[Rfam]
Shown here is a 169-nucleotide RNA sequence from Paenibacillus sp. KS1, a member of the family "c-di-AMP riboswitch aptamer (ydaO/yuaA leader)".
RNA sequence: AUGCAAUCCGAGCCGAAACGACACACCCGUACGGGGGACUAUUGACCGGUGUUCGAUAUUACGAGAACACCUUGGGGUGAAUCGCUUAUUCCGCAACUUGGAAUGGCGUAGGGGAACUCCUUGACCCGAAUCCGACAACUAACCCCGCAGGCUAAUGCACAGGAGGAAA
Numbered sequence: 001a002u003g004c005a006a007u008c009c010g011a012g013c014c015g016a017a018a019c020g021a022c023a024c025a026c027c028c029g030u031a032c033g034g035g036g037g038a039c040u041a042u043u044g045a046c047c048g049g050u051g052u053u054c055g056a057u058a059u060u061a062c063g064a065g066a067a068c069a070c071c072u073u074g075g076g077g078u079g080a081a082u083c084g085c086u087u088a089u090u091c092c093g094c095a096a097c098u099u100g101g102a103a104u105g106g107c108g109u110a111g112g113g114g115a116a117c118u119c120c121u122u123g124a125c126c127c128g129a130a131u132c133c134g135a136c137a138a139c140u141a142a143c144c145c146c147g148c149a150g151g152c153u154a155a156u157g158c159a160c161a162g163g164a165g166g167a168a169a
Base pairs, nucleotide, nucleotide: 011153012152013151014150018030019029020028032147033146034145035144036143040074041073075133076132077131083108084107085106086105111127112126113125
Its family is annotated with cyclic-di-AMP binding and regulation of gene expression in the Gene Ontology. Rfam describes the family as follows. This family represents a conserved RNA structure found upstream of the ydaO and yuaA genes in Bacillus subtilis and related genes in other bacteria. The source organism's lineage runs through Bacteria, Bacillati, Caryophanales, Paenibacillaceae and Paenibacillus.